[Rfam]
RNA sequence: CUACGGGGAUGAUUUCAAAAAUUGAACUCUCUCUUUCUGAUGGAUUAGUGGAGAAAACAAAAACUCUGAGUAGC
Number, nucleotide and partner (000 for none) at each position: 001c073002u072003a071004c070005g000006g000007g000008g000009a000010u000011g000012a000013u000014u000015u000016c000017a000018a000019a000020a000021a000022u000023u000024g000025a000026a000027c000028u000029c000030u000031c000032u000033c000034u000035u000036u000037c000038u000039g000040a000041u000042g000043g000044a000045u000046u000047a000048g000049u000050g000051g000052a000053g000054a000055a000056a000057a000058c000059a000060a000061a000062a000063a000064c000065u000066c000067u000068g000069a000070g004071u003072a002073g001074c000